[Rfam]
RNA sequence: GAACCCAUGCAGUGAUGUAUGGCUCAAUUGCAAGAAGUCAGCAGAGGUCAUAGUACCGGUUUUUUUUUUCGGGAAGGAC
Numbered sequence: 001g002a003a004c005c006c007a008u009g010c011a012g013u014g015a016u017g018u019a020u021g022g023c024u025c026a027a028u029u030g031c032a033a034g035a036a037g038u039c040a041g042c043a044g045a046g047g048u049c050a051u052a053g054u055a056c057c058g059g060u061u062u063u064u065u066u067u068u069u070c071g072g073g074a075a076g077g078a079c
Stems, first nucleotide, its partner, number of pairs: 001025002005022007038045002047079003056072004
The family of this 79-nucleotide RNA from Sporomusa sphaeroides is "Group II catalytic intron D1-D4-1". Rfam describes the family as follows. Group II introns are found in rRNA, tRNA and mRNA of organelles in fungi, plants and protists, and also in mRNA in bacteria. The pairing is the family consensus, mapped onto this sequence. NCBI's taxonomy places the organism under Bacteria, Negativicutes, Sporomusaceae, Sporomusa, Sporomusa sphaeroides. Rfam 15.1 lists 2,508 matches to the family in 1,144 species.